About this RNA:
Rfam assigns this 86-nucleotide RNA sequence from Stegodyphus mimosarum to the family "mir-276 microRNA precursor family". Rfam 15.1 lists 200 matches to the family in 170 species. NCBI's taxonomy places the organism under Eukaryota, Metazoa, Panarthropoda, Chelicerata, Stegodyphus. The match comes from Rfam's covariance-model search (64 bits).
[Rfam]
RNA sequence: GUUGUUGUUCCUCGUUAGCGAGGUAUGGAGUUCUUACUGUGUAAGCAGCGGGUAGGAACUUCAUACCAUGCUCUCGAAGAAUCGGC
Numbered sequence: 001g002u003u004g005u006u007g008u009u010c011c012u013c014g015u016u017a018g019c020g021a022g023g024u025a026u027g028g029a030g031u032u033c034u035u036a037c038u039g040u041g042u043a044a045g046c047a048g049c050g051g052g053u054a055g056g057a058a059c060u061u062c063a064u065a066c067c068a069u070g071c072u073c074u075c076g077a078a079g080a081a082u083c084g085g086c
Stems, first nucleotide, its partner, number of pairs: 012077003017072004022067005028061010